This 93-nucleotide RNA sequence from Oryzias melastigma belongs to the Rfam family "Small nucleolar SNORD12/SNORD106". By type it is a C/D-box small nucleolar RNA. Its Rfam clan is "SNORD12 clan".
RNA sequence: AAUGUAGUUUGUGAUGCACACAUUUUUUCCCCGUCUUAUCGACCAUGGUGAGGGAAAAAUCAAAACUUUGCCAGUUGUGUCUGAAACUACAUG
Numbered sequence: 001a002a003u004g005u006a007g008u009u010u011g012u013g014a015u016g017c018a019c020a021c022a023u024u025u026u027u028u029c030c031c032c033g034u035c036u037u038a039u040c041g042a043c044c045a046u047g048g049u050g051a052g053g054g055a056a057a058a059a060u061c062a063a064a065a066c067u068u069u070g071c072c073a074g075u076u077g078u079g080u081c082u083g084a085a086a087c088u089a090c091a092u093g
Stems, first nucleotide, its partner, number of pairs: 002092008